[Rfam]
RNA sequence: GUAGGCUACGGGGACCUAGCUCCGAAAACCUACUUGGGCAUGUUUGUAGGAGCACUCUGCGCGUUGGCAGGAGUACUAACUAUUGCGUUACCUGUUCCAGUCAUCGUGUCGAAC
Dot-bracket structure: ((..(.(((((.(((...(.(...............((.(.........(...........)...........).))................).)...))).))))).)..))

Rfam assigns this 114-nucleotide sequence from Arctia plantaginis to the family "Potassium channel RNA editing signal". The source organism's lineage runs through Eukaryota, Allotriocarida, Lepidoptera, Glossata and Arctia. Rfam links the family to the GO term adenosine to inosine editing. The match comes from Rfam's covariance-model search (81 bits).